[Rfam]
RNA sequence: AGUUAGAGAUGAGGCGCAUUGAUCAUUAUUAGAUAAGGUUUGGAAUCUGCAAGAUACCUUAUUGAAAGGGUGAUAUGCCGAAAUGUAUAUGUUAUUGCAGUAGCAUAUGCGUUGGAUUUGUAGUUAAUAGCUAUAAGUCUGUCAUUAUUUUCAAAAAUAAUGGGGUGCAUCGCUUGUA
Numbered sequence: 001a002g003u004u005a006g007a008g009a010u011g012a013g014g015c016g017c018a019u020u021g022a023u024c025a026u027u028a029u030u031a032g033a034u035a036a037g038g039u040u041u042g043g044a045a046u047c048u049g050c051a052a053g054a055u056a057c058c059u060u061a062u063u064g065a066a067a068g069g070g071u072g073a074u075a076u077g078c079c080g081a082a083a084u085g086u087a088u089a090u091g092u093u094a095u096u097g098c099a100g101u102a103g104c105a106u107a108u109g110c111g112u113u114g115g116a117u118u119u120g121u122a123g124u125u126a127a128u129a130g131c132u133a134u135a136a137g138u139c140u141g142u143c144a145u146u147a148u149u150u151u152c153a154a155a156a157a158u159a160a161u162g163g164g165g166u167g168c169a170u171c172g173c174u175u176g177u178a
Stems, first nucleotide, its partner, number of pairs: 006173001008171004016078004024070001032063008082113012114140011142163007
RNA: Lysine riboswitch aptamer
Organism: Vagococcus teuberi